[Rfam]
RNA sequence: UAGUGAUAAAGGCAAACCCAUCGAAAGAUGGCGACGCAAAGCUACAGGGGCUUCAGCGAUGAUACUCGCUAUGCCAGCCAGUUACCGAU
Numbered sequence: 001u002a003g004u005g006a007u008a009a010a011g012g013c014a015a016a017c018c019c020a021u022c023g024a025a026a027g028a029u030g031g032c033g034a035c036g037c038a039a040a041g042c043u044a045c046a047g048g049g050g051c052u053u054c055a056g057c058g059a060u061g062a063u064a065c066u067c068g069c070u071a072u073g074c075c076a077g078c079c080a081g082u083u084a085c086c087g088a089u
Stems, first nucleotide, its partner, number of pairs: 012037002018031005040083004047079002049075003056069004
Notes:
Rfam assigns this 89-nucleotide RNA sequence from Paenibacillus dendritiformis to the family "c-di-GMP-I riboswitch aptamer". A reference for the family is Weinberg et al. (2007), "Identification of 22 candidate structured RNAs in bacteria using the CMfinder comparative genomics pipeline", Nucleic Acids Res. The source organism's lineage runs through Bacteria, Bacillota, Bacilli, Paenibacillus and Paenibacillus dendritiformis. The family has 155 seed sequences and 5,092 matches in Rfam 15.1.